A member of the RNA family "DUF805 RNA" from Antarcticibacterium flavum, 71 nucleotides long. The base pairs follow the family's consensus structure, which is taken from published work. Clan: DUF805 clan. The source organism's lineage runs through Bacteria, Pseudomonadati, Flavobacteriia, Flavobacteriaceae and Antarcticibacterium.

RNA sequence: AAAAAGUGGAGUCCAGGACCCACUAAAAAAAAACGGGGCGUAUUCCAAAAAGCCAUAUGAGUAGGAAUUUU
Numbered sequence: 001a002a003a004a005a006g007u008g009g010a011g012u013c014c015a016g017g018a019c020c021c022a023c024u025a026a027a028a029a030a031a032a033a034c035g036g037g038g039c040g041u042a043u044u045c046c047a048a049a050a051a052g053c054c055a056u057a058u059g060a061g062u063a064g065g066a067a068u069u070u071u
Stems, first nucleotide, its partner, number of pairs: 006023004037054003044065002
Dot-bracket structure: .....((((..........)))).............(((....[[......))).........]]......